A member of the RNA family "mraW RNA" from Gordonia asplenii, 104 nucleotides long. It scores 56 bits against the family's covariance model. NCBI's taxonomy places the organism under Bacteria, Bacillati, Actinomycetota, Gordoniaceae, Gordonia.
[Rfam]
Nucleotides: 104
Stems, first nucleotide, its partner, number of pairs: 008093007019081002022078010033067003038062008
Number, partner (000 for none) and nucleotide at each position: 001000c002000c003000c004000c005000g006000g007000c008093g009092g010091g011090u012089g013088a014087g015000c016000u017000g018000a019081g020080g021000c022078c023077c024076u025075g026074g027073u028072c029071c030070g031069a032000a033067c034066c035065g036000a037000c038062c039061c040060u041059g042058g043057c044056g045055u046000a047000c048000u049000u050000c051000c052000c053000c054000a055045a056044c057043g058042c059041c060040a061039g062038g063000u064000g065035c066034g067033g068000c069031u070030c071029g072028g073027g074026c075025u076024g077023g078022g079000a080020c081019c082000u083000g084000a085000g086000u087014c088013u089012c090011a091010c092009c093008c094000g095000u096000c097000c098000c099000u100000g101000c102000g103000u104000u